[Rfam]
Nucleotides: 082
Base pairs, nucleotide, nucleotide: 003080004079005078006077007076008075011029012028013027014026015025019068020067022065032045033044034043035042056074057073058072059071060070
Number, partner (000 for none) and nucleotide at each position: 001000g002000a003080u004079u005078a006077u007076u008075g009000a010000g011029g012028u013027g014026a015025g016000a017000a018000a019068u020067g021000u022065c023000u024000c025015c026014u027013c028012a029011u030000a031000g032045g033044c034043u035042a036000a037000a038000u039000a040000u041000u042035u043034a044033g045032u046000a047000a048000a049000u050000a051000g052000a053000g054000a055000u056074g057073u058072a059071g060070g061000a062000u063000a064000u065022g066000u067020c068019g069000a070060c071059c072058u073057a074056c075008c076007a077006a078005u079004a080003a081000c082000a
The record is an 82-nucleotide RNA, which matches "skipping-rope RNA" in Rfam.